[Rfam]
RNA sequence: CUGUUGUGCAUUGUAGUUGCAUUGCAUGUGUCUCCUAAAAGUGCAAUGUACCUGCAGUGCAACACAG
Number, nucleotide and partner (000 for none) at each position: 001c067002u066003g065004u064005u000006g063007u061008g060009c059010a058011u057012u056013g055014u054015a053016g052017u000018u000019g049020c000021a047022u046023u045024g044025c043026a042027u041028g000029u000030g000031u000032c000033u000034c000035c000036u000037a000038a000039a000040a000041g027042u026043g025044c024045a023046a022047u021048g000049u019050a000051c000052c016053u015054g014055c013056a012057g011058u010059g009060c008061a007062a000063c006064a004065c003066a002067g001
RNA: mir-33 microRNA precursor family